RNA: Makes More Granules Regulator RNA (mmgR)
Organism: Rhizobium sp. Root1212
RNA sequence: UGUAAAUACCCUCCUUGGGUGUUUCCUCCCUAGACUUAAACCGCGCCCCGUGCGCGGUUCUUUUUUGGCGAUA
Numbered sequence: 001u002g003u004a005a006a007u008a009c010c011c012u013c014c015u016u017g018g019g020u021g022u023u024u025c026c027u028c029c030c031u032a033g034a035c036u037u038a039a040a041c042c043g044c045g046c047c048c049c050g051u052g053c054g055c056g057g058u059u060c061u062u063u064u065u066u067g068g069c070g071a072u073a
Base pairs, nucleotide, nucleotide: 008020009019010018011017040058041057042056043055044054045053046052